The record is a 504-nucleotide part of an RNA from Halobaculum magnesiiphilum, which matches "Archaeal small subunit ribosomal RNA" in Rfam. Taxonomically the source falls in Halobaculum (Archaea, Methanobacteriati, Halobacteria, Halobacteriales). Rfam's curators put it in the seed alignment. On this family, see Yusupov et al., Science 2001: "Crystal structure of the ribosome at 5.5 A resolution".
RNA sequence: AUUCCGGUUGAUCCUGCCGGAGGUCAUUGCUAUCGGAGUCCGAUUUAGCCAUGCUAGUCGCACGGGUUCAGACCCGUGGCGAAUAGCUCCGUAACACGUGGCCAAUCUACCCUACGGACCGGUAUAACCUCGGGAAACUGAGGCUAAUCCCGGUUACGGCUCUCAUGCUGGAACGCCGAGAGCUGGAAACGUUCCGACGCCGUAGGAUGAGGCUGCGGCCGAUUAGGUAGACGGUGGGGUAACGGCCCACCGUGCCGAUAAUCGGUACGGGUUGUGAGAGCAAGAACCCGGAGACGGAAUCUGAGACAAGAUUCCGGGCCCUACGGGGCGCAGCAGGCGCGAAACCUUUACACUGCACGACAGUGCGAUAGGGGGACUCCGAGUGCGGAGGCAUAGUGCCUUCGCUUUUGUGCACCCUAAGGCGGUGCACGAAUAAGAGCUGGGCAAGACCGGUGCCAGCCGCCGCGGUAAUACCGGCAGCUCGAGUGAUGACCGAUCUUAUUG
Numbered sequence: 001a002u003u004c005c006g007g008u009u010g011a012u013c014c015u016g017c018c019g020g021a022g023g024u025c026a027u028u029g030c031u032a033u034c035g036g037a038g039u040c041c042g043a044u045u046u047a048g049c050c051a052u053g054c055u056a057g058u059c060g061c062a063c064g065g066g067u068u069c070a071g072a073c074c075c076g077u078g079g080c081g082a083a084u085a086g087c088u089c090c091g092u093a094a095c096a097c098g099u100g101g102c103c104a105a106u107c108u109a110c111c112c113u114a115c116g117g118a119c120c121g122g123u124a125u126a127a128c129c130u131c132g133g134g135a136a137a138c139u140g141a142g143g144c145u146a147a148u149c150c151c152g153g154u155u156a157c158g159g160c161u162c163u164c165a166u167g168c169u170g171g172a173a174c175g176c177c178g179a180g181a182g183c184u185g186g187a188a189a190c191g192u193u194c195c196g197a198c199g200c201c202g203u204a205g206g207a208u209g210a211g212g213c214u215g216c217g218g219c220c221g222a223u224u225a226g227g228u229a230g231a232c233g234g235u236g237g238g239g240u241a242a243c244g245g246c247c248c249a250c251c252g253u254g255c256c257g258a259u260a261a262u263c264g265g266u267a268c269g270g271g272u273u274g275u276g277a278g279a280g281c282a283a284g285a286a287c288c289c290g291g292a293g294a295c296g297g298a299a300u301c302u303g304a305g306a307c308a309a310g311a312u313u314c315c316g317g318g319c320c321c322u323a324c325g326g327g328g329c330g331c332a333g334c335a336g337g338c339g340c341g342a343a344a345c346c347u348u349u350a351c352a353c354u355g356c357a358c359g360a361c362a363g364u365g366c367g368a369u370a371g372g373g374g375g376a377c378u379c380c381g382a383g384u385g386c387g388g389a390g391g392c393a394u395a396g397u398g399c400c401u402u403c404g405c406u407u408u409u410g411u412g413c414a415c416c417c418u419a420a421g422g423c424g425g426u427g428c429a430c431g432a433a434u435a436a437g438a439g440c441u442g443g444g445c446a447a448g449a450c451c452g453g454u455g456c457c458a459g460c461c462g463c464c465g466c467g468g469u470a471a472u473a474c475c476g477g478c479a480g481c482u483c484g485a486g487u488g489a490u491g492a493c494c495g496a497u498c499u500u501a502u503u504g
Stems, first nucleotide, its partner, number of pairs: 004020005022494010033382009042340001048338003052335003057080003062077006087293003097217007106210002111206007119153004128143006158184007167176002191198002219265003226256003231253008268290004272283004295316006318329004346372001348371003354367005385405008410430007437483006450477004459466002